A member of the RNA family "Group II catalytic intron D1-D4-1" from Desulfobacteraceae bacterium SEEP-SAG9, 82 nucleotides long. The pairing is the family consensus, mapped onto this sequence. NCBI's taxonomy places the organism under Bacteria, Pseudomonadati, Thermodesulfobacteriota, Desulfobacterales, Desulfobacteraceae. It scores 63 bits against the family's covariance model. From the family's description: Group II introns are found in rRNA, tRNA and mRNA of organelles in fungi, plants and protists, and also in mRNA in bacteria.

RNA sequence: CUACCGUCAUCGCGAGGUGACGGGAUGUGCCAUAAGAAGUCAGCCGAGGUCAUAUUAGCUCAAACGACCAUGAGUGAAGGAC
Numbered sequence: 001c002u003a004c005c006g007u008c009a010u011c012g013c014g015a016g017g018u019g020a021c022g023g024g025a026u027g028u029g030c031c032a033u034a035a036g037a038a039g040u041c042a043g044c045c046g047a048g049g050u051c052a053u054a055u056u057a058g059c060u061c062a063a064a065c066g067a068c069c070a071u072g073a074g075u076g077a078a079g080g081a082c
Stems, first nucleotide, its partner, number of pairs: 001027001004023008040047002049082003058075005